[Rfam]
RNA sequence: UUUACUGAAGACACCUCAGAAAUAUAAGAGAAUGAACCUUAUGUCGGCACCUGGUGGUAACCCCUCGCAGGAAAGUCGGGAUAAGGCACUCUCUAUCAGAAUGGAUGUCUUGCUGCUAUAAUAGAUAGAGAAGGUUAUAGCAGACUAUAGAUUAAUUAGUUGAAAGUUUUGUGUGGUAAUGUAUAGUGUUGGAGAAAGUGAAAGACUUGCGGAAGUAAUUGCCGACAAGUGCCCAAGGGGAAGAGCCAGCAUGUUAAGUUACCACCCAGUAAUUAGUAAAUGAAUGAAGUUAAUUAUGG
Numbered sequence: 001u002u003u004a005c006u007g008a009a010g011a012c013a014c015c016u017c018a019g020a021a022a023u024a025u026a027a028g029a030g031a032a033u034g035a036a037c038c039u040u041a042u043g044u045c046g047g048c049a050c051c052u053g054g055u056g057g058u059a060a061c062c063c064c065u066c067g068c069a070g071g072a073a074a075g076u077c078g079g080g081a082u083a084a085g086g087c088a089c090u091c092u093c094u095a096u097c098a099g100a101a102u103g104g105a106u107g108u109c110u111u112g113c114u115g116c117u118a119u120a121a122u123a124g125a126u127a128g129a130g131a132a133g134g135u136u137a138u139a140g141c142a143g144a145c146u147a148u149a150g151a152u153u154a155a156u157u158a159g160u161u162g163a164a165a166g167u168u169u170u171g172u173g174u175g176g177u178a179a180u181g182u183a184u185a186g187u188g189u190u191g192g193a194g195a196a197a198g199u200g201a202a203a204g205a206c207u208u209g210c211g212g213a214a215g216u217a218a219u220u221g222c223c224g225a226c227a228a229g230u231g232c233c234c235a236a237g238g239g240g241a242a243g244a245g246c247c248a249g250c251a252u253g254u255u256a257a258g259u260u261a262c263c264a265c266c267c268a269g270u271a272a273u274u275a276g277u278a279a280a281u282g283a284a285u286g287a288a289g290u291u292a293a294u295u296a297u298g299g
Stems, first nucleotide, its partner, number of pairs: 027094005033088002037086006044079004050071004056065002113143010150295008160279003165274002169269003186252007205230005210224003232240003

Background
Shown here is a 299-nucleotide RNA from Betacoronavirus gravedinis, a member of the family "Betacoronavirus 3'UTR". The family is grouped with related families in Rfam's "Coronavirus 3' UTR". The pairing is the family consensus, mapped onto this sequence. For this family Rfam cites "The 3' cis-acting genomic replication element of the severe acute respiratory syndrome coronavirus can function in the murine coronavirus genome" (Goebel et al., J Virol, 2004). About the family: The 3' UTR of betacoronaviruses is approximately 300-500 nucleotides long. The most 5' structure is the bulged stem-loop (BSL), starting downstream of the N gene stop codon and is essential for viral replication. It is predicted to be conserved among betacoronaviruses. Downstream to the BSL lies the hypervariable bulged-stemloop region (HVR), containing a triple helix junction. It scores 237 bits against the family's covariance model.